Rfam assigns this 434-nucleotide part of an RNA from Dothidotthia symphoricarpi to the family "Eukaryotic large subunit ribosomal RNA". Clan: LSU clan. A search with the family's covariance model found it, with a score of 3102 bits. NCBI's taxonomy places the organism under Eukaryota, Fungi, saccharomyceta, Pezizomycotina, Dothidotthia symphoricarpi. Rfam links the family to the GO terms ribosome and structural constituent of ribosome.
RNA sequence: GGUAGUAGCAAAUACUUAAAUAAGAACUUUGAGGACUGAAGUAGGGAAAGGUUCUGUGUAAACAGCAGUUGGACACAGGUUAGUCGAUCCUAAGAGAUAGGGUAAUUCCGUUUUAAUAUAGGCGCUUGCGCCUCGCCCUCGAAAGGGAAGCCAGUUAAUAUUCCAGCACCUGGAUGUAGAUUCUCCGCAGCAACGCAACUAAGAGCGGAGACUUUAGCAGGAGCCCCAAGAAGAGUUCUCUUUUCUUCUUAACAGUCUAUUACCCUGAAAUCGGUUUGUCCAGAGCUAGGGUUUAAUGGCCGGAAGAGCGCUGCACUUUUGCGGCGUUUAGUGCGCUCCCAAUAAACCUUGAAAAUCCGCUUAAAGAAAUAGUUUUUACGCCAGGUCGUACUCAUAACCGCAGCAGGUCUCCAAGGUGAAAAGCCUCUAGUUGA
Numbered sequence: 001g002g003u004a005g006u007a008g009c010a011a012a013u014a015c016u017u018a019a020a021u022a023a024g025a026a027c028u029u030u031g032a033g034g035a036c037u038g039a040a041g042u043a044g045g046g047a048a049a050g051g052u053u054c055u056g057u058g059u060a061a062a063c064a065g066c067a068g069u070u071g072g073a074c075a076c077a078g079g080u081u082a083g084u085c086g087a088u089c090c091u092a093a094g095a096g097a098u099a100g101g102g103u104a105a106u107u108c109c110g111u112u113u114u115a116a117u118a119u120a121g122g123c124g125c126u127u128g129c130g131c132c133u134c135g136c137c138c139u140c141g142a143a144a145g146g147g148a149a150g151c152c153a154g155u156u157a158a159u160a161u162u163c164c165a166g167c168a169c170c171u172g173g174a175u176g177u178a179g180a181u182u183c184u185c186c187g188c189a190g191c192a193a194c195g196c197a198a199c200u201a202a203g204a205g206c207g208g209a210g211a212c213u214u215u216a217g218c219a220g221g222a223g224c225c226c227c228a229a230g231a232a233g234a235g236u237u238c239u240c241u242u243u244u245c246u247u248c249u250u251a252a253c254a255g256u257c258u259a260u261u262a263c264c265c266u267g268a269a270a271u272c273g274g275u276u277u278g279u280c281c282a283g284a285g286c287u288a289g290g291g292u293u294u295a296a297u298g299g300c301c302g303g304a305a306g307a308g309c310g311c312u313g314c315a316c317u318u319u320u321g322c323g324g325c326g327u328u329u330a331g332u333g334c335g336c337u338c339c340c341a342a343u344a345a346a347c348c349u350u351g352a353a354a355a356u357c358c359g360c361u362u363a364a365a366g367a368a369a370u371a372g373u374u375u376u377u378a379c380g381c382c383a384g385g386u387c388g389u390a391c392u393c394a395u396a397a398c399c400g401c402a403g404c405a406g407g408u409c410u411c412c413a414a415g416g417u418g419a420a421a422a423g424c425c426u427c428u429a430g431u432u433g434a
Base pairs, nucleotide, nucleotide: 015033016032017031018030019029020028034432035431036430037429044411045410046409049392050391054078055077056076057075058074059073063071064070085388086387087386089146090145094140095139096112097111098110100109101108102107120133121132122131150167151166154163170384171383172382173381175380176379177378178377179376180374187196188195204361205360206359207358208357209356213346214345215344216343220339221338222337223336224335226331228329229249230248231247232246233245234244253302255300256299257298262292263291264290265289266288267287271283273281274280309326310325311324312323313322314321315320398407399406414426415425416424417423